Rfam assigns this 46-nucleotide RNA from Acanthosepion pharaonis to the family "Histone 3' UTR stem-loop". Rfam links the family to the GO term mRNA 3'-end processing by stem-loop binding and cleavage. A search with the family's covariance model found it, with a score of 37 bits. The organism belongs to Acanthosepion, within Eukaryota. It is annotated as a cis-regulatory element. The mRNAs of metazoan histone genes lack a poly-A tail. 3' end processing occurs at a site between a highly conserved stem-loop (modelled by this family) and a purine rich region around 20 nts downstream (the histone downstream element, or HDE).
[Rfam]
RNA sequence: CCAACGGCCCUUUUAAGGGCCAUCUAUGAUUUCUCGAAAGUUUUUU
Numbered sequence: 001c002c003a004a005c006g007g008c009c010c011u012u013u014u015a016a017g018g019g020c021c022a023u024c025u026a027u028g029a030u031u032u033c034u035c036g037a038a039a040g041u042u043u044u045u046u
Stems, first nucleotide, its partner, number of pairs: 006021006